Shown here is a 98-nucleotide RNA from Neorhizobium sp. SOG26, a member of the family "Repression of heat shock gene expression (ROSE) element". The family's consensus secondary structure is taken from published work. Rfam 15.1 lists 381 matches to the family in 262 species.
RNA sequence: UCGGUUGCCCAACCGGGGGCCGACCUGUCCGGGAGGCGUCGCUGGCUCUUGGCGCCUCCUUCGUUCCAUGUUGCUUAAGGAGGAUAUGGCUAUGAGGA
Numbered sequence: 001u002c003g004g005u006u007g008c009c010c011a012a013c014c015g016g017g018g019g020c021c022g023a024c025c026u027g028u029c030c031g032g033g034a035g036g037c038g039u040c041g042c043u044g045g046c047u048c049u050u051g052g053c054g055c056c057u058c059c060u061u062c063g064u065u066c067c068a069u070g071u072u073g074c075u076u077a078a079g080g081a082g083g084a085u086a087u088g089g090c091u092a093u094g095a096g097g098a
Base pairs, nucleotide, nucleotide: 001023002022003021004020005019006018008017009016033058034057035056036055037054038053039052040051041050059096060095061094066089067088068087069086070085071084072083074082075081076080
It is annotated as an RNA thermoregulator. Rfam's curators write: This family represents a 5' UTR cis-regulatory element found in heat shock mRNAs and is known as the ROSE (repression of heat shock gene expression) element. The ROSE element is a negative regulator of heat shock gene expression. The secondary structure is thought to be regulated by temperature. On this family, see Balsiger et al., J Bacteriol 2004: "Replicon-specific regulation of small heat shock genes in Agrobacterium tumefaciens".